[Rfam]
RNA: pemK RNA
RNA sequence: AUAAUGAUACUCCCGUAAUUCGCGGCCCGGCCAUAAUGAAGGCGGGGAAACCGAUUUGGUUUGUGA
Number, nucleotide and partner (000 for none) at each position: 001a000002u000003a000004a000005u000006g000007a000008u000009a000010c000011u000012c063013c025014c024015g023016u022017a000018a000019u000020u000021c000022g016023c015024g014025g013026c047027c046028c045029g000030g043031c042032c041033a000034u000035a000036a000037u000038g000039a000040a000041g032042g031043c030044g000045g028046g027047g026048a062049a061050a060051c000052c000053g000054a000055u000056u000057u000058g000059g000060u050061u049062u048063g012064u000065g000066a000